[Rfam]
RNA sequence: UCUUUAUUUUAGAUUUUAAGUUGGUCCCUUAUCUUUAUUUUAGGUUUCAAGUUGGUCCAUUCCGUCAAUUUUUUAACUAUUUCCGUUAAAUUUGGACACGUGUCAUCUAUCCAAGUGUGCCACGUGUCCAAAUUAGUUUGCCACGUGUCAAAAUUUAACGGAAAUAGUUAAAAAAUUGACGGAAGGGACCAACUUGAAACCUAAAAUAAAGAUAAGGGACCAACUUGAAACUUUUAAAAGAUAAGGGA
Numbered sequence: 001u002c003u004u005u006a007u008u009u010u011a012g013a014u015u016u017u018a019a020g021u022u023g024g025u026c027c028c029u030u031a032u033c034u035u036u037a038u039u040u041u042a043g044g045u046u047u048c049a050a051g052u053u054g055g056u057c058c059a060u061u062c063c064g065u066c067a068a069u070u071u072u073u074u075a076a077c078u079a080u081u082u083c084c085g086u087u088a089a090a091u092u093u094g095g096a097c098a099c100g101u102g103u104c105a106u107c108u109a110u111c112c113a114a115g116u117g118u119g120c121c122a123c124g125u126g127u128c129c130a131a132a133u134u135a136g137u138u139u140g141c142c143a144c145g146u147g148u149c150a151a152a153a154u155u156u157a158a159c160g161g162a163a164a165u166a167g168u169u170a171a172a173a174a175a176u177u178g179a180c181g182g183a184a185g186g187g188a189c190c191a192a193c194u195u196g197a198a199a200c201c202u203a204a205a206a207u208a209a210a211g212a213u214a215a216g217g218g219a220c221c222a223a224c225u226u227g228a229a230a231c232u233u234u235u236a237a238a239a240g241a242u243a244a245g246g247g248a
Base pairs, nucleotide, nucleotide: 001243003241004240019225020224021223023221024220025219027217028216029215030214031213032212033211034210035209036208037207038206039205041203042202043201
Dot-bracket structure: (.((..............(((.(((.(((((((((((((.(((.............................................................................................................................................................))).))))))))))))).))).)))..............)).).....